[Rfam]
RNA: GP20-b RNA
RNA sequence: GGUUACCCGUCAGCCUAUGAGGACGGGGCGGCAGGUCACGGCAACGACCUAAAAAGCCUA
Dot-bracket structure: [[[[..(((((]]]]......))))).......((((........))))...........
Numbered sequence: 001g002g003u004u005a006c007c008c009g010u011c012a013g014c015c016u017a018u019g020a021g022g023a024c025g026g027g028g029c030g031g032c033a034g035g036u037c038a039c040g041g042c043a044a045c046g047a048c049c050u051a052a053a054a055a056g057c058c059u060a
Stems, first nucleotide, its partner, number of pairs: 001015004007026005034049004